About this RNA: A member of the RNA family "Ribosomal protein L20 leader" from Listeria kieliensis, 144 nucleotides long.

RNA sequence: ACAAGAAAGAAGAAGCAACCCGCUUCUCGCCUCGUUAACGGAUGUUUUCAGGCAAAAAGUUCAAUGAUUCGUCACGCCUGAACUGGUUGUGACUUUGAAUGUGCGGGUUUGCGUCGUUUAGCAAAUCCGUUUUUUUAUUGUCUG
Numbered sequence: 001a002c003a004a005g006a007a008a009g010a011a012g013a014a015g016c017a018a019c020c021c022g023c024u025u026c027u028c029g030c031c032u033c034g035u036u037a038a039c040g041g042a043u044g045u046u047u048u049c050a051g052g053c054a055a056a057a058a059g060u061u062c063a064a065u066g067a068u069u070c071g072u073c074a075c076g077c078c079u080g081a082a083c084u085g086g087u088u089g090u091g092a093c094u095u096u097g098a099a100u101g102u103g104c105g106g107g108u109u110u111g112c113g114u115c116g117u118u119u120a121g122c123a124a125a126u127c128c129g130u131u132u133u134u135u136u137a138u139u140g141u142c143u144g
Stems, first nucleotide, its partner, number of pairs: 011027006029053003037046003103130009

Overview:
Pairs were carried over by alignment from the consensus structure, which was predicted with CMfinder. A search with the family's covariance model found it, with a score of 64 bits.